[Rfam]
RNA sequence: CAAAAUAUGAGUCUUCAAUUCUUAAAAACUAAGGUAUAAAUUAUGAUUAUAAGAUCAAUAGGUCUGUUGGGAAACUAAUUUACUUCCUGGCUGGGAAAGAAGACAUUUAAUCCUAUCU
Numbered sequence: 001c002a003a004a005a006u007a008u009g010a011g012u013c014u015u016c017a018a019u020u021c022u023u024a025a026a027a028a029c030u031a032a033g034g035u036a037u038a039a040a041u042u043a044u045g046a047u048u049a050u051a052a053g054a055u056c057a058a059u060a061g062g063u064c065u066g067u068u069g070g071g072a073a074a075c076u077a078a079u080u081u082a083c084u085u086c087c088u089g090g091c092u093g094g095g096a097a098a099g100a101a102g103a104c105a106u107u108u109a110a111u112c113c114u115a116u117c118u
Stems, first nucleotide, its partner, number of pairs: 004111001006109001011104006020054005026048002029045001033042003060085004066079005086095002
Molybdenum/Tungsten riboswitch aptamer (Moco RNA motif): a 118-nucleotide sequence from Halanaerobium sp. DL-01. NCBI's taxonomy places the organism under Bacteria, Bacillota, Halanaerobiales, Halanaerobiaceae, Halanaerobium. A search with the family's covariance model found it, with a score of 40 bits.